[Rfam]
RNA sequence: GAAGCGCGCCAGACCGCCGCUGGUGCAAGUCUCGAAAGAGCGCACUGGAGGAAGGUCCGGACUGCACAGGACAGCGCAGGAGCUAACGGCUCUCCACCGCGAGGUGAGGAUCAGAGCAACAGAGACGAGUCGGCCGGGGGCAACCCCGGUCGGGUGAAACGGGCAAUCUCUGCGCGCAGCAACACCAAGUAGGCCAGCGUCGAUGUGGUUCCGCAGAGCUGGCGGGUAGGUGGCACCGAGCCGUUUGGCGACAAACGGCCCAGAGUAAUGGCGGUCACGUUGGGGGCAACCUCAACGCACAGAAUCCGGCCUACAGGCGCGCUUCACAC
Numbered sequence: 001g002a003a004g005c006g007c008g009c010c011a012g013a014c015c016g017c018c019g020c021u022g023g024u025g026c027a028a029g030u031c032u033c034g035a036a037a038g039a040g041c042g043c044a045c046u047g048g049a050g051g052a053a054g055g056u057c058c059g060g061a062c063u064g065c066a067c068a069g070g071a072c073a074g075c076g077c078a079g080g081a082g083c084u085a086a087c088g089g090c091u092c093u094c095c096a097c098c099g100c101g102a103g104g105u106g107a108g109g110a111u112c113a114g115a116g117c118a119a120c121a122g123a124g125a126c127g128a129g130u131c132g133g134c135c136g137g138g139g140g141c142a143a144c145c146c147c148g149g150u151c152g153g154g155u156g157a158a159a160c161g162g163g164c165a166a167u168c169u170c171u172g173c174g175c176g177c178a179g180c181a182a183c184a185c186c187a188a189g190u191a192g193g194c195c196a197g198c199g200u201c202g203a204u205g206u207g208g209u210u211c212c213g214c215a216g217a218g219c220u221g222g223c224g225g226g227u228a229g230g231u232g233g234c235a236c237c238g239a240g241c242c243g244u245u246u247g248g249c250g251a252c253a254a255a256c257g258g259c260c261c262a263g264a265g266u267a268a269u270g271g272c273g274g275u276c277a278c279g280u281u282g283g284g285g286g287c288a289a290c291c292u293c294a295a296c297g298c299a300c301a302g303a304a305u306c307c308g309g310c311c312u313a314c315a316g317g318c319g320c321g322c323u324u325c326a327c328a329c
Stems, first nucleotide, its partner, number of pairs: 001325010012276007020048007053312003057309005062179004069210001071209001074175005079093005094108001095106004109170002114168002116164002131153001133150007183232004193223006204215004240259008
A member of the RNA family "Bacterial RNase P class A" from Variovorax sp. CF079, 329 nucleotides long.